Rfam assigns this 155-nucleotide RNA from Hermetia illucens to the family "R2 RNA element".
From the family's description: This family represents the 3' UTR region of the R2 retrotransposable element. This family is known to interact with the R2-encoded reverse transcriptase in a reaction known as target primed reverse transcription (TPRT).
The family's RNA type in Rfam is cis-regulatory element.
Pairs were carried over by alignment from the consensus structure, which is taken from published work.

[Rfam]
RNA sequence: ACCAAGCUACAAUGAGCUGACUCCGCCCCGUGAUGUAAUACCGUACGGUGGUUCCACGGGGCUUGGAAGGAGUCGGAGGUGGUUUUAGUGGGUAAGAAUCCCACACGCUGGCAUGUCCAGGCCAGCGUCUUUUGAAGAUUUCCACCUCCUCAAAA
Numbered sequence: 001a002c003c004a005a006g007c008u009a010c011a012a013u014g015a016g017c018u019g020a021c022u023c024c025g026c027c028c029c030g031u032g033a034u035g036u037a038a039u040a041c042c043g044u045a046c047g048g049u050g051g052u053u054c055c056a057c058g059g060g061g062c063u064u065g066g067a068a069g070g071a072g073u074c075g076g077a078g079g080u081g082g083u084u085u086u087a088g089u090g091g092g093u094a095a096g097a098a099u100c101c102c103a104c105a106c107g108c109u110g111g112c113a114u115g116u117c118c119a120g121g122c123c124a125g126c127g128u129c130u131u132u133u134g135a136a137g138a139u140u141u142c143c144a145c146c147u148c149c150u151c152a153a154a155a
Stems, first nucleotide, its partner, number of pairs: 026061006063153004075149008088104005106127006